The family of this 154-nucleotide sequence from Hibiscus syriacus is "Small nucleolar RNA snoR145".
NCBI's taxonomy places the organism under Eukaryota, Viridiplantae, rosids, Malvoideae, Hibiscus.
The family's consensus secondary structure was predicted with mfold.
The match comes from Rfam's covariance-model search (102 bits).
Rfam links the family to the GO terms nucleolus and RNA processing.
It is annotated as an H/ACA-box small nucleolar RNA.
RNA sequence: UGGCGAAGGUCCCAGCAGGGAGGUGGGAACUCUUAUGAAUUGAUUCCUCUCUAACAAAUUAUCCGAAAAUGCCUUCGCAUAUCCAUUUUUGCCGAUUCGUAGGAUGCCCGAUUACUCCAUUUUUGGAGCGUCUUGAACCCUCGGCUACAUUCUA
Numbered sequence: 001u002g003g004c005g006a007a008g009g010u011c012c013c014a015g016c017a018g019g020g021a022g023g024u025g026g027g028a029a030c031u032c033u034u035a036u037g038a039a040u041u042g043a044u045u046c047c048u049c050u051c052u053a054a055c056a057a058a059u060u061a062u063c064c065g066a067a068a069a070u071g072c073c074u075u076c077g078c079a080u081a082u083c084c085a086u087u088u089u090u091g092c093c094g095a096u097u098c099g100u101a102g103g104a105u106g107c108c109c110g111a112u113u114a115c116u117c118c119a120u121u122u123u124u125g126g127a128g129c130g131u132c133u134u135g136a137a138c139c140c141u142c143g144g145c146u147a148c149a150u151u152c153u154a
Stems, first nucleotide, its partner, number of pairs: 003078007011020003025051003033043003091145005103132002106129002108126004